RNA sequence: UGGCACCCAAUGUGGCUUGGAUACUGGGGACAACAUGAGGGACACGACAAAAAAAGAAGGGGUGCGCACCUGCUCAAAUAGUUCGGAGACGUCGCGGUAGCCUGCUGUGACCGAGCCGACAGGUAAGCUGGUCGUCAAUCAUGGGGCAAGAAUUAAGUCAGCAUCAAAAGUAUGUGAUGCAGUUAAGAGAAGCGUUACAGGCAAGAGGAAUAAAGGUUACAACUGAGGAUUUAUUUCAUUUUUUUGAUUUUAUAAAAGACAUCUGUCCAU
Numbered sequence: 001u002g003g004c005a006c007c008c009a010a011u012g013u014g015g016c017u018u019g020g021a022u023a024c025u026g027g028g029g030a031c032a033a034c035a036u037g038a039g040g041g042a043c044a045c046g047a048c049a050a051a052a053a054a055a056g057a058a059g060g061g062g063u064g065c066g067c068a069c070c071u072g073c074u075c076a077a078a079u080a081g082u083u084c085g086g087a088g089a090c091g092u093c094g095c096g097g098u099a100g101c102c103u104g105c106u107g108u109g110a111c112c113g114a115g116c117c118g119a120c121a122g123g124u125a126a127g128c129u130g131g132u133c134g135u136c137a138a139u140c141a142u143g144g145g146g147c148a149a150g151a152a153u154u155a156a157g158u159c160a161g162c163a164u165c166a167a168a169a170g171u172a173u174g175u176g177a178u179g180c181a182g183u184u185a186a187g188a189g190a191a192g193c194g195u196u197a198c199a200g201g202c203a204a205g206a207g208g209a210a211u212a213a214a215g216g217u218u219a220c221a222a223c224u225g226a227g228g229a230u231u232u233a234u235u236u237c238a239u240u241u242u243u244u245u246g247a248u249u250u251u252a253u254a255a256a257a258g259a260c261a262u263c264u265g266u267c268c269a270u
Base pairs, nucleotide, nucleotide: 006029007028008027012024013023014022034046036044090113091112093109094108095107096106097105129149131147132146135144136143137142154197155196156195157193158192205245206244207243208242209241210240214232215231216230217229218228255270258267259266260265
RNA: Mason-Pfizer monkey virus packaging signal